Glycine riboswitch aptamer: a 77-nucleotide RNA from Shimia thalassica.
Nucleotides: 077
Stems, first nucleotide, its partner, number of pairs: 009069005020032004034057003037053002041051002
Number, partner (000 for none) and nucleotide at each position: 001000a002000a003000a004000a005000u006000g007000a008000a009069c010068u011067c012066u013065g014000g015000a016000g017000a018000g019000a020032g021031g022030c023029g024000c025000a026000c027000a028000g029023c030022g031021u032020c033000c034057g035056c036055c037053g038052a039000a040000g041051g042050g043000a044000u045000a046000a047000c048000g049000a050042u051041c052038u053037c054000a055036g056035g057034c058000c059000a060000a061000a062000g063000g064000a065013c066012a067011g068010a069009g070000g071000g072000g073000g074000c075000a076000u077000c